[Rfam]
RNA sequence: AUAUAUAAAUAAACUAUCGCUUUAUUUUAUAAAAUAAAGAGGAAAGUCCGGACUCCUGAGUUCAAAGAGCCAGAUAACAUCUGGAAAAUAUAUUUUAAUAAAAUAUAUUUAUGAAAAGUGCAACAGAAAAAAAACCACUUUAUAAAAUAUAAAGAAAGGGUGAAAAGGUGAGGUAAGAGCUUACCAUAAAUUUGGUAACAAAUUUAGUAUUUGUAAACUCCUCUUGGAGAAAGACUAAAAUUGGUUUAUUGAACUCUAAAAUAACCUAGGUAAGUCGAAAAGAAUUAAUAUGUGAAUAUUAAUCAAGAUUAAUGAUAGUUAAUACAGAAUCCGGCUUAUUUUUUAUAUAUAAAA
Dot-bracket structure: (((((((((.((((((((.((((((((....))))))))....[[[.[[[[[((((...[....((((((((((.....)))))((((((((((((...))))))))))).)((...(((((............((.(((((((...)))))))...)).......((((((.......))))))(((((((((....)))))))).)...)))..)))))))))))))...((((......((.(((.((....]))...))).)).....)))).......((((((((....))))))))..........))))))).........]]]]]]]].)..)))))))))....